[Rfam]
RNA: mir-1388 microRNA precursor family
RNA sequence: CCCUGGGCGGUGCCUCCAGGACUGUCCAGCCUGAGAAUGCUAAGUCUCCAGGUCAAUCUCAGGUUUGUCAGUCCGUGAGGUGCUGCCCCUUC
Numbered sequence: 001c002c003c004u005g006g007g008c009g010g011u012g013c014c015u016c017c018a019g020g021a022c023u024g025u026c027c028a029g030c031c032u033g034a035g036a037a038u039g040c041u042a043a044g045u046c047u048c049c050a051g052g053u054c055a056a057u058c059u060c061a062g063g064u065u066u067g068u069c070a071g072u073c074c075g076u077g078a079g080g081u082g083c084u085g086c087c088c089c090u091u092c
Base pairs, nucleotide, nucleotide: 005089006088007087008085009084010083011082012081013080014079015078016077019074020073022071023070024069026067028065029064030063031062032061033060034059035058036057038055039054